[Rfam]
RNA sequence: GUACAGCUAGAUCCAUACCCCUAAACUCCCUAGAUAUGGCCGGUGUUCCGUUGAACACCGGCCGCUUUUU
Numbered sequence: 001g002u003a004c005a006g007c008u009a010g011a012u013c014c015a016u017a018c019c020c021c022u023a024a025a026c027u028c029c030c031u032a033g034a035u036a037u038g039g040c041c042g043g044u045g046u047u048c049c050g051u052u053g054a055a056c057a058c059c060g061g062c063c064g065c066u067u068u069u070u
Stems, first nucleotide, its partner, number of pairs: 005035001007033003038063010
RNA: Listeria sRNA sbrA
Organism: Bacillus infantis